[Rfam]
RNA: Photosynthesis regulatory RNA1
RNA sequence: AAAACUUUUAUUUUCUCAUCGGUAUCUCCCAUCGAACGACAUUUGGAUUCCUCGUCUACACCUCGGUUAAUCGCCGGGGUUUUU
Number, nucleotide and partner (000 for none) at each position: 001a000002a000003a000004a000005c000006u000007u000008u000009u000010a000011u000012u000013u000014u000015c000016u000017c000018a000019u000020c000021g000022g000023u000024a000025u000026c000027u000028c000029c000030c000031a000032u000033c000034g000035a000036a000037c000038g000039a000040c000041a000042u000043u000044u000045g000046g000047a000048u000049u000050c000051c000052u000053c000054g000055u000056c000057u000058a000059c000060a080061c079062c078063u077064c076065g075066g074067u073068u000069a000070a000071u000072c000073g067074c066075c065076g064077g063078g062079g061080u060081u000082u000083u000084u000